[Rfam]
RNA: DUF3800-IX RNA
RNA sequence: AACCUGUAUUCCGAACUGUCACCGGAUGGUGGCGUGGCUGGGACCUCCAGCAUAGGAUAUGUGGUUGGAA
Numbered sequence: 001a002a003c004c005u006g007u008a009u010u011c012c013g014a015a016c017u018g019u020c021a022c023c024g025g026a027u028g029g030u031g032g033c034g035u036g037g038c039u040g041g042g043a044c045c046u047c048c049a050g051c052a053u054a055g056g057a058u059a060u061g062u063g064g065u066u067g068g069a070a
Stems, first nucleotide, its partner, number of pairs: 001066004005061002008058001010057003017034007037051004